[Rfam]
RNA sequence: CUUCAAGAGAUGUGGCGCCAAGCUCCGACUUGCCACGCACCAACCCCAUGUUCCCGGGUGGUUCGGAUGAGGAAGCGGCCCGGCUUCGGACCAGAGACAACCGAGCGGGCAAGAGCAUCUC
Numbered sequence: 001c002u003u004c005a006a007g008a009g010a011u012g013u014g015g016c017g018c019c020a021a022g023c024u025c026c027g028a029c030u031u032g033c034c035a036c037g038c039a040c041c042a043a044c045c046c047c048a049u050g051u052u053c054c055c056g057g058g059u060g061g062u063u064c065g066g067a068u069g070a071g072g073a074a075g076c077g078g079c080c081c082g083g084c085u086u087c088g089g090a091c092c093a094g095a096g097a098c099a100a101c102c103g104a105g106c107g108g109g110c111a112a113g114a115g116c117a118u119c120u121c
Base pairs, nucleotide, nucleotide: 001075002074003073004072009038011037012036013035014034015033016032021030022029039062040061041060044058045057046056078110079109080108081107082106085105086104087103088102089101
Overview: The family of this 121-nucleotide RNA sequence from Arthrobacter cavernae is "SAM (S-adenosyl methionine) riboswitch aptamer". Taxonomically the source falls in Arthrobacter (Bacteria, Actinomycetota, Micrococcales, Micrococcaceae). The match comes from Rfam's covariance-model search (66 bits).